[Rfam]
RNA sequence: CUCUUUUUUUGUGUUAGACUAAGGGCGAAAGGAG
Numbered sequence: 001c002u003c004u005u006u007u008u009u010u011g012u013g014u015u016a017g018a019c020u021a022a023g024g025g026c027g028a029a030a031g032g033a034g
Stems, first nucleotide, its partner, number of pairs: 001025005008018003
RNA: L31-Firmicutes ribosomal protein leader